[Rfam]
RNA sequence: UUAUUUCACUAGGGGAGUCUAACGGCUGAGAUGGAGCGCAUGCUCCGGACCCUUUGAACCUGAUCUGGAUCAUUCCAGCGGAGGGAAGUGGAGCAGAAACAGC
Dot-bracket structure: .....(((((((((..(((....)))......(((((....)))))...)))).....(((...((((......))))...)))..)))))............